[Rfam]
RNA sequence: CUUUGCUGCCGGGCUUGUCCGCCAGCAGGCGGUUGCCCACCGCAUGGACGAGGUGGGUCUUGCCCAGGCCGACGCCGCCGUA
Number, nucleotide and partner (000 for none) at each position: 001c000002u000003u000004u044005g043006c042007u000008g041009c000010c000011g038012g037013g036014c035015u000016u000017g033018u032019c031020c000021g030022c029023c000024a000025g000026c000027a000028g000029g022030c021031g019032g018033u017034u000035g014036c013037c012038c011039a000040c000041c008042g006043c005044a004045u000046g000047g000048a000049c000050g000051a000052g079053g078054u077055g076056g000057g075058u074059c000060u000061u000062g073063c000064c071065c000066a000067g000068g000069c000070c000071g064072a000073c062074g058075c057076c055077g054078c053079c052080g000081u000082a000

Rfam assigns this 82-nucleotide RNA sequence from Ramlibacter humi to the family "antisense RNA of dnaA mRNA". Its family is annotated with regulation of mRNA stability in the Gene Ontology. Lineage of the source: Bacteria > Pseudomonadota > Betaproteobacteria > Burkholderiales > Ramlibacter. The family's consensus secondary structure was predicted with RNAfold.